[Rfam]
Background:
Rfam assigns this 151-nucleotide RNA from Cocos nucifera to the family "small nucleolar RNA snoR135". Taxonomically the source falls in Cocos (Eukaryota, Embryophyta, commelinids, Attaleinae). Rfam 15.1 lists 837 matches to the family in 220 species.

RNA sequence: AGUGCAGGAUAGUGUGUAUCGGUGUUAUGCUCUUCUACCAUGCAUUCUUGCCGAAAGUGUUUCCUGCUACAUUAAGUUUGGAGAAAAUGGGCAGUUGGGUUGCACCCUAAUCUUUUCAUUGGGUAUCUCAACAAUCAUUUUCCCCAUAUUU
Numbered sequence: 001a002g003u004g005c006a007g008g009a010u011a012g013u014g015u016g017u018a019u020c021g022g023u024g025u026u027a028u029g030c031u032c033u034u035c036u037a038c039c040a041u042g043c044a045u046u047c048u049u050g051c052c053g054a055a056a057g058u059g060u061u062u063c064c065u066g067c068u069a070c071a072u073u074a075a076g077u078u079u080g081g082a083g084a085a086a087a088u089g090g091g092c093a094g095u096u097g098g099g100u101u102g103c104a105c106c107c108u109a110a111u112c113u114u115u116u117c118a119u120u121g122g123g124u125a126u127c128u129c130a131a132c133a134a135u136c137a138u139u140u141u142c143c144c145c146a147u148a149u150u151u
Base pairs, nucleotide, nucleotide: 004067005066006065007064008063009061014045015044016043017042018041019040080145081144083142084141085140086139087138088137089136090135094132095131096130097129098128099127